[Rfam]
RNA sequence: UCAUACGGAUUGAUAAUCCGUAUGAAUCAUACGGAUCGGUGAUCCAUAUGGAUCAUACGGAUCAUCAAUCCGUAUGAAUUUUU
Numbered sequence: 001u002c003a004u005a006c007g008g009a010u011u012g013a014u015a016a017u018c019c020g021u022a023u024g025a026a027u028c029a030u031a032c033g034g035a036u037c038g039g040u041g042a043u044c045c046a047u048a049u050g051g052a053u054c055a056u057a058c059g060g061a062u063c064a065u066c067a068a069u070c071c072g073u074a075u076g077a078a079u080u081u082u083u
Base pairs, nucleotide, nucleotide: 001077002076003075004074005073006072007071008070009069010068011067012066013065014064016062017061018060019059020058021057022056023055024054025053027051028050029049030048031047033045034044035043036042037041
Notes: The record is an 83-nucleotide sequence from Glycine max, which matches "MIR4380 microRNA precursor family" in Rfam. The family's consensus secondary structure was predicted with RNAalifold. Taxonomically the source falls in Glycine subgen. Soja (Eukaryota, Streptophyta, Tracheophyta, Pentapetalae). Its family is annotated with miRNA-mediated post-transcriptional gene silencing and RISC complex in the Gene Ontology.